[Rfam]
RNA sequence: CUUGAUUGAGCCUAGCAGCAGCGGGGCGGCCGCACCCCGCUGUCCGUAGGUGGCGAGCAGGGCCUGCGCCUC
Numbered sequence: 001c002u003u004g005a006u007u008g009a010g011c012c013u014a015g016c017a018g019c020a021g022c023g024g025g026g027c028g029g030c031c032g033c034a035c036c037c038c039g040c041u042g043u044c045c046g047u048a049g050g051u052g053g054c055g056a057g058c059a060g061g062g063c064c065u066g067c068g069c070c071u072c
Base pairs, nucleotide, nucleotide: 016024031068032067033066035062036061040057041056044053045052046051
About this RNA: Shown here is a 72-nucleotide RNA from Micromonospora nigra, a member of the family "ASpks TB sRNA". The organism belongs to Micromonospora, within Bacteria. A search with the family's covariance model found it, with a score of 58 bits. By type it is an antisense RNA. The base pairs follow the family's consensus structure, which is taken from published work.